[Rfam]
RNA sequence: AUCACGCGCUCGUCACUGCCCACCACAGUCUCGCCGCCUUUCGGUCAAGCGGGGGACAAUCGCUUGGGCGAUCUUCAUACCCGUAGCAGGGCCGGUUCCGCCGCUCCGGUCUAUCCCAGCCCCCCAGCCCCCCGGGGUGGUGUGAACCGGUCACUGCUACGCUUCCAAAUUUUGAACUUCCAAGGCCGCGCAAGCGGCCUUUUUG
Numbered sequence: 001a002u003c004a005c006g007c008g009c010u011c012g013u014c015a016c017u018g019c020c021c022a023c024c025a026c027a028g029u030c031u032c033g034c035c036g037c038c039u040u041u042c043g044g045u046c047a048a049g050c051g052g053g054g055g056a057c058a059a060u061c062g063c064u065u066g067g068g069c070g071a072u073c074u075u076c077a078u079a080c081c082c083g084u085a086g087c088a089g090g091g092c093c094g095g096u097u098c099c100g101c102c103g104c105u106c107c108g109g110u111c112u113a114u115c116c117c118a119g120c121c122c123c124c125c126a127g128c129c130c131c132c133c134g135g136g137g138u139g140g141u142g143u144g145a146a147c148c149g150g151u152c153a154c155u156g157c158u159a160c161g162c163u164u165c166c167a168a169a170u171u172u173u174g175a176a177c178u179u180c181c182a183a184g185g186c187c188g189c190g191c192a193a194g195c196g197g198c199c200u201u202u203u204u205g
Stems, first nucleotide, its partner, number of pairs: 038053002042049001082161006089152002092150007101140009119128002182201008
The family of this 205-nucleotide RNA from Azorhizobium caulinodans is "Bradyrhizobiaceae sRNA BjrC174".
It scores 56 bits against the family's covariance model.
The source organism's lineage runs through Bacteria, Alphaproteobacteria, Hyphomicrobiales, Azorhizobium and Azorhizobium caulinodans.
The literature on the family includes a 2012 paper in RNA Biol by Madhugiri et al., "Small RNAs of the Bradyrhizobium/Rhodopseudomonas lineage and their analysis".